[Rfam]
This 69-nucleotide sequence from Pseudenhygromyxa sp. WMMC2535 belongs to the Rfam family "tRNA".
NCBI's taxonomy places the organism under Bacteria, Pseudomonadati, Nannocystales, Nannocystaceae, Pseudenhygromyxa.
RNA sequence: CCUGAAGUAGUUCAGCGGAAGAACGGCUGGCUGACCAGUUGGGCGCAGGUUCGAAUCCUGCCUUCAGGU
Numbered sequence: 001c002c003u004g005a006a007g008u009a010g011u012u013c014a015g016c017g018g019a020a021g022a023a024c025g026g027c028u029g030g031c032u033g034a035c036c037a038g039u040u041g042g043g044c045g046c047a048g049g050u051u052c053g054a055a056u057c058c059u060g061c062c063u064u065c066a067g068g069u
Base pairs, nucleotide, nucleotide: 001068002067003066004065005064006063007062010024011023012022013021026039027038028037029036030035045061046060047059048058049057